[Rfam]
RNA: Actinobacteria sRNA Ms_IGR-5
Organism: Streptomyces sp. ISL-94
Nucleotides: 212
Stems, first nucleotide, its partner, number of pairs: 015058005060117003063113001065111002068109002073104006135206013149167006
Number, partner (000 for none) and nucleotide at each position: 001000a002000c003000a004000c005000g006000a007000g008000a009000a010000g011000g012000g013000a014000g015058g016057u017056g018055g019054u020000u021000c022000c023000c024000g025000a026000a027000a028000u029000g030000u031000a032000c033000g034000g035000a036000a037000a038000c039000c040000g041000g042000a043000c044000g045000c046000g047000u048000g049000a050000g051000g052000u053000g054019g055018c056017u057016g058015c059000g060117g061116g062115c063113u064000a065111a066110g067000c068109g069108c070000c071000c072000g073104u074103c075102g076101u077100c078099g079000c080000a081000c082000g083000c084000a085000c086000c087000c088000a089000g090000u091000g092000c093000g094000g095000u096000g097000c098000c099078c100077g101076g102075c103074g104073g105000a106000u107000c108069g109068c110066c111065u112000g113063g114000c115062g116061c117060c118000a119000a120000u121000c122000c123000a124000c125000a126000g127000c128000a129000g130000u131000c132000a133000c134000c135206c136205g137204a138203c139202c140201c141200g142199c143198g144197g145196g146195c147194u148000c149167g150166c151165c152164g153163g154162u155000a156000c157000g158000u159000c160000c161000g162154g163153c164152c165151g166150g167149c168000c169000u170000c171000u172000c173000c174000c175000a176000c177000u178000g179000c180000a181000g182000g183000g184000g185000a186000g187000a188000g189000a190000c191000c192000c193000g194147a195146g196145c197144c198143c199142g200141c201140g202139g203138g204137u205136c206135g207000c208000c209000u210000g211000c212000u